Rfam assigns this 121-nucleotide RNA from Bacillus sp. THAF10 to the family "epsC RNA". The family's consensus secondary structure is taken from published work. The match comes from Rfam's covariance-model search (104 bits).

RNA sequence: AGGUGAUGUCUCCUUACCUUUAUCAAUGGAGGCACUCGGUUGCACUGUGGGUAGGGAGAUAUUUCUACCUUAGAUACGAGGAGUUAUCAUGGGUGUAUUGUGAGGUGGGGUUUGAUGCCCC
Numbered sequence: 001a002g003g004u005g006a007u008g009u010c011u012c013c014u015u016a017c018c019u020u021u022a023u024c025a026a027u028g029g030a031g032g033c034a035c036u037c038g039g040u041u042g043c044a045c046u047g048u049g050g051g052u053a054g055g056g057a058g059a060u061a062u063u064u065c066u067a068c069c070u071u072a073g074a075u076a077c078g079a080g081g082a083g084u085u086a087u088c089a090u091g092g093g094u095g096u097a098u099u100g101u102g103a104g105g106u107g108g109g110g111u112u113u114g115a116u117g118c119c120c121c
Stems, first nucleotide, its partner, number of pairs: 001019004007034007035104004039099001041097006049070008073088004107121005